[Rfam]
RNA sequence: ACAUUUUGGGUGUGUGAUUUGUGGCAAAGUGAUAUGCAUUUGAUCAUCCCCUUGUUGCAAACCUCACGCCAAAGUUGA
Numbered sequence: 001a002c003a004u005u006u007u008g009g010g011u012g013u014g015u016g017a018u019u020u021g022u023g024g025c026a027a028a029g030u031g032a033u034a035u036g037c038a039u040u041u042g043a044u045c046a047u048c049c050c051c052u053u054g055u056u057g058c059a060a061a062c063c064u065c066a067c068g069c070c071a072a073a074g075u076u077g078a
Stems, first nucleotide, its partner, number of pairs: 002077002005074003009070006016063001018061010029050001031048003